[Rfam]
c-di-GMP-I-GGC riboswitch aptamer: a 94-nucleotide RNA sequence from Bacillus sp. SJS.
RNA sequence: UCAGACAAAGGCAAACCUGCUGAAAAGCAGGGACGCAAAGUCACGGGUCUAAGGUUGCCGUAUUGAGGCAAUGAUGAUCGCCGGACUGCCUGAA
Numbered sequence: 001u002c003a004g005a006c007a008a009a010g011g012c013a014a015a016c017c018u019g020c021u022g023a024a025a026a027g028c029a030g031g032g033a034c035g036c037a038a039a040g041u042c043a044c045g046g047g048u049c050u051a052a053g054g055u056u057g058c059c060g061u062a063u064u065g066a067g068g069c070a071a072u073g074a075u076g077a078u079c080g081c082c083g084g085a086c087u088g089c090c091u092g093a094a
Base pairs, nucleotide, nucleotide: 001094003091004090011036012035016031017030018029019028020027021026034080039087040086041085042084044083045082046081047078048077049076